[Rfam]
RNA sequence: AACUGCCCUGGUGAUGGCGUUCCACCUUACCCAACCGCUACUCUUCCUUUGAGAGCUGAUGACGCCUGACACGAC
Numbered sequence: 001a002a003c004u005g006c007c008c009u010g011g012u013g014a015u016g017g018c019g020u021u022c023c024a025c026c027u028u029a030c031c032c033a034a035c036c037g038c039u040a041c042u043c044u045u046c047c048u049u050u051g052a053g054a055g056c057u058g059a060u061g062a063c064g065c066c067u068g069a070c071a072c073g074a075c
Base pairs, nucleotide, nucleotide: 010026011025012024013023016066017065018064019063020062021061037056038055039054
RNA: Fluoride riboswitch aptamer (crcB RNA motif)
Organism: Pantoea alhagi